[Rfam]
RNA sequence: GGCCUCCUGGUGCUUACCACAGGCUAUUUUCCAACACUGACCAUAGAGAAACAGGAGGCAGAAUAAACUUUCCUUAUAUACACCUCAGCCUAGGCCCUGUGUAUAUUCUGUAUUGUGAAUCGGGGAACACAG
Numbered sequence: 001g002g003c004c005u006c007c008u009g010g011u012g013c014u015u016a017c018c019a020c021a022g023g024c025u026a027u028u029u030u031c032c033a034a035c036a037c038u039g040a041c042c043a044u045a046g047a048g049a050a051a052c053a054g055g056a057g058g059c060a061g062a063a064u065a066a067a068c069u070u071u072c073c074u075u076a077u078a079u080a081c082a083c084c085u086c087a088g089c090c091u092a093g094g095c096c097c098u099g100u101g102u103a104u105a106u107u108c109u110g111u112a113u114u115g116u117g118a119a120u121c122g123g124g125g126a127a128c129a130c131a132g
Stems, first nucleotide, its partner, number of pairs: 002059007022041001027036001029034001072124003076120002086110003091105002094102002